RNA sequence: ACUGGCACAGUGAUGACAAGUUACUUUUUGCCGUUUACCCAGCUGAGGGUAUCUUUGAAGAAAUAACUUUAAGACUGAGAUGCCAGU
Dot-bracket structure: (((((((.........................................................................)))))))